[Rfam]
RNA sequence: GAAAGGAAUUGAUAUCUAUCAAUUCUGGAAGCUGGAUAACAGUUUCUCAAUUAGG
Numbered sequence: 001g002a003a004a005g006g007a008a009u010u011g012a013u014a015u016c017u018a019u020c021a022a023u024u025c026u027g028g029a030a031g032c033u034g035g036a037u038a039a040c041a042g043u044u045u046c047u048c049a050a051u052u053a054g055g
Base pairs, nucleotide, nucleotide: 005026006025007024008023009022010021011020012019027047028046029045030044031043032042033041

Shown here is a 55-nucleotide RNA sequence, a member of the family "S4-Clostridia ribosomal protein leader". The family's consensus secondary structure is taken from published work. The literature on the family includes a 2020 paper in BMC Microbiol by Eckert and Weinberg, "Discovery of 20 novel ribosomal leader candidates in bacteria and archaea". It is annotated as a cis-regulatory leader.